[Rfam]
RNA sequence: CCAGCCGGCCGGAUGACCGCUGCCGCAAGGGAGAGGAAAGUCCGGGCUCCACGGAGACACGGCGCCGGAUAAUGUCCGGCGGGGGCGACCCCAGGGAAAGCGCCACAGAAAUCGAACCGCCGCGCAGGACGCGGUAAGGGUGAAAAGGUGCGGUAAGAGCGCACCGCUCGGACGGCAACGUCCGAGGCAUGGCAAGCCCCGCCGGGAGCAAGACCGAAUAGGGGCGACAGAGGGCGCAAGCCUUCAGCCCGUCUCCGGGCCCGUCGCCCGGGUUGGUCGCCAGAGGCGGCCGGCAACGGCCGUCCCAGAUGAAUGGUCGUCACGCGAGGCCUGAGGGAAACCUUGCCUCGCCAUACAAAACCCGGCUUACAGGCCGGCUGGCUCU
Numbered sequence: 001c002c003a004g005c006c007g008g009c010c011g012g013a014u015g016a017c018c019g020c021u022g023c024c025g026c027a028a029g030g031g032a033g034a035g036g037a038a039a040g041u042c043c044g045g046g047c048u049c050c051a052c053g054g055a056g057a058c059a060c061g062g063c064g065c066c067g068g069a070u071a072a073u074g075u076c077c078g079g080c081g082g083g084g085g086c087g088a089c090c091c092c093a094g095g096g097a098a099a100g101c102g103c104c105a106c107a108g109a110a111a112u113c114g115a116a117c118c119g120c121c122g123c124g125c126a127g128g129a130c131g132c133g134g135u136a137a138g139g140g141u142g143a144a145a146a147g148g149u150g151c152g153g154u155a156a157g158a159g160c161g162c163a164c165c166g167c168u169c170g171g172a173c174g175g176c177a178a179c180g181u182c183c184g185a186g187g188c189a190u191g192g193c194a195a196g197c198c199c200c201g202c203c204g205g206g207a208g209c210a211a212g213a214c215c216g217a218a219u220a221g222g223g224g225c226g227a228c229a230g231a232g233g234g235c236g237c238a239a240g241c242c243u244u245c246a247g248c249c250c251g252u253c254u255c256c257g258g259g260c261c262c263g264u265c266g267c268c269c270g271g272g273u274u275g276g277u278c279g280c281c282a283g284a285g286g287c288g289g290c291c292g293g294c295a296a297c298g299g300c301c302g303u304c305c306c307a308g309a310u311g312a313a314u315g316g317u318c319g320u321c322a323c324g325c326g327a328g329g330c331c332u333g334a335g336g337g338a339a340a341c342c343u344u345g346c347c348u349c350g351c352c353a354u355a356c357a358a359a360a361c362c363c364g365g366c367u368u369a370c371a372g373g374c375c376g377g378c379u380g381g382c383u384c385u
Stems, first nucleotide, its partner, number of pairs: 001381010011370001012321007020033002023030002038368003042365005047208004056254001060204005065079005080094001081092004095199002100197002102193003117139002119135006147165006166188001167186008212278004222269006247260004285304008
RNA: Bacterial RNase P class A
Organism: Methylocystis heyeri